[Rfam]
Nucleotides: 080
Stems, first nucleotide, its partner, number of pairs: 012037002018031005041073002045070003048065006
Number, partner (000 for none) and nucleotide at each position: 001000u002000a003000c004000c005000c006000g007000a008000a009000c010000a011000g012037g013036c014000a015000a016000a017000c018031c019030c020029g021028c022027c023000g024000u025000g026000a027022g028021g029020c030019g031018g032000a033000g034000a035000c036013g037012c038000a039000a040000a041073g042072c043000c044000a045070g046069g047068g048065g049064c050063c051062u052061c053060c054000c055000c056000c057000g058000a059000c060053g061052g062051a063050g064049g065048c066000a067000g068047c069046c070045c071000a072042g073041c074000c075000g076000c077000c078000g079000a080000a